Background: Rfam assigns this 121-nucleotide sequence from Lentilactobacillus curieae to the family "FMN riboswitch aptamer (RFN element)". Pairs were carried over by alignment from the consensus structure, which is taken from published work. About the family: The RFN element is a highly conserved domain that is found frequently in the 5'-untranslated regions of prokaryotic mRNAs that encode for flavin mononucleotide (FMN) biosynthesis and transport proteins. A search with the family's covariance model found it, with a score of 103 bits.

RNA sequence: GUUAGUCUUCAGGGCAGGGUUAGAUUCCCGACCGGCGGUUAUAGUCCGCGACCCGCAGUGAUGCGGCUGAGCUGGUGAAAUUCCAGUGCCGACAGUAAAGUCUGGUAUGUAGAAGAUUGUA
Numbered sequence: 001g002u003u004a005g006u007c008u009u010c011a012g013g014g015c016a017g018g019g020u021u022a023g024a025u026u027c028c029c030g031a032c033c034g035g036c037g038g039u040u041a042u043a044g045u046c047c048g049c050g051a052c053c054c055g056c057a058g059u060g061a062u063g064c065g066g067c068u069g070a071g072c073u074g075g076u077g078a079a080a081u082u083c084c085a086g087u088g089c090c091g092a093c094a095g096u097a098a099a100g101u102c103u104g105g106u107a108u109g110u111a112g113a114a115g116a117u118u119g120u121a
Base pairs, nucleotide, nucleotide: 003119004118005117006116007115008114009113010112017029018028019027031101032100033091034090035049036048037047038046044089045088053066054065071087072086073085074084075083093104094103095102

NCBI's taxonomy places the organism under Bacteria, Bacillati, Lactobacillales, Lactobacillaceae, Lentilactobacillus.